[Rfam]
RNA sequence: CGGCGGGCUACCCCUCCCCACCGAGGGGCAUCUAUCUGGAAGGGAUAGUUGCA
Numbered sequence: 001c002g003g004c005g006g007g008c009u010a011c012c013c014c015u016c017c018c019c020a021c022c023g024a025g026g027g028g029c030a031u032c033u034a035u036c037u038g039g040a041a042g043g044g045a046u047a048g049u050u051g052c053a
Base pairs, nucleotide, nucleotide: 011028012027013026014025015024016023032048033047034046035045036044037043